Description: This 112-nucleotide RNA sequence from Phtheirospermum japonicum belongs to the Rfam family "Small nucleolar RNA snoR109". The literature on the family includes a 2002 paper in Curr Biol by Marker et al., "Experimental RNomics: identification of 140 candidates for small non-messenger RNAs in the plant Arabidopsis thaliana". NCBI's taxonomy places the organism under Eukaryota, Embryophyta, Euphyllophyta, Lamiales, Phtheirospermum. Rfam 15.1 lists 680 matches to the family in 220 species. It scores 80 bits against the family's covariance model. Rfam links the family to the GO terms RNA processing and nucleolus.
[Rfam]
RNA sequence: UGGCUGUAGCGAUAUUUAAUUGAGAAGUUAUCUGGCCGGUUGUUGUUUUUUGGGAUUUCUUUUAUCUGAAUCUCAAUCGUCGACAUAUCUGCUUACCGAAUUUCUUAUAUUU
Numbered sequence: 001u002g003g004c005u006g007u008a009g010c011g012a013u014a015u016u017u018a019a020u021u022g023a024g025a026a027g028u029u030a031u032c033u034g035g036c037c038g039g040u041u042g043u044u045g046u047u048u049u050u051u052g053g054g055a056u057u058u059c060u061u062u063u064a065u066c067u068g069a070a071u072c073u074c075a076a077u078c079g080u081c082g083a084c085a086u087a088u089c090u091g092c093u094u095a096c097c098g099a100a101u102u103u104c105u106u107a108u109a110u111u112u
Stems, first nucleotide, its partner, number of pairs: 022106008034093003038089003042084004